[Rfam]
Overview:
c-di-AMP riboswitch aptamer (ydaO/yuaA leader): a 175-nucleotide RNA from Streptomyces sp. SID5789.
RNA sequence: GCGCGGCCUCCGCCGAGUCCGGCGUGCCCGCCACGGCGCCCGGAGCCGGGGACCCAACCGAGAACUUGGGCUGAAUCGGCCGUACCGCCCUCCAUGAGGACGGUCCGCCGUAGGGCAACCCUUCCGUGCCGCCCGAACCCGACAGCUAACCCGGUAGGCGGAGCACUUGGAAGGA
Numbered sequence: 001g002c003g004c005g006g007c008c009u010c011c012g013c014c015g016a017g018u019c020c021g022g023c024g025u026g027c028c029c030g031c032c033a034c035g036g037c038g039c040c041c042g043g044a045g046c047c048g049g050g051g052a053c054c055c056a057a058c059c060g061a062g063a064a065c066u067u068g069g070g071c072u073g074a075a076u077c078g079g080c081c082g083u084a085c086c087g088c089c090c091u092c093c094a095u096g097a098g099g100a101c102g103g104u105c106c107g108c109c110g111u112a113g114g115g116c117a118a119c120c121c122u123u124c125c126g127u128g129c130c131g132c133c134c135g136a137a138c139c140c141g142a143c144a145g146c147u148a149a150c151c152c153g154g155u156a157g158g159c160g161g162a163g164c165a166c167u168u169g170g171a172a173g174g175a
Base pairs, nucleotide, nucleotide: 011160012159013158014157018044019043020042021041022040045155046154047153048152049151050150055068056067069140070139077110078109079108080107113134114133115132116131
The organism belongs to Streptomyces, within Bacteria.